[Rfam]
RNA sequence: UACUGUUUGUGAUGAUUAAUUCUAAGCAAUGGGAAUCUCUCUGAAGGAGACUGAGGAGGACUCUUGCACUGAAACAGUA
Numbered sequence: 001u002a003c004u005g006u007u008u009g010u011g012a013u014g015a016u017u018a019a020u021u022c023u024a025a026g027c028a029a030u031g032g033g034a035a036u037c038u039c040u041c042u043g044a045a046g047g048a049g050a051c052u053g054a055g056g057a058g059g060a061c062u063c064u065u066g067c068a069c070u071g072a073a074a075c076a077g078u079a
Stems, first nucleotide, its partner, number of pairs: 001079007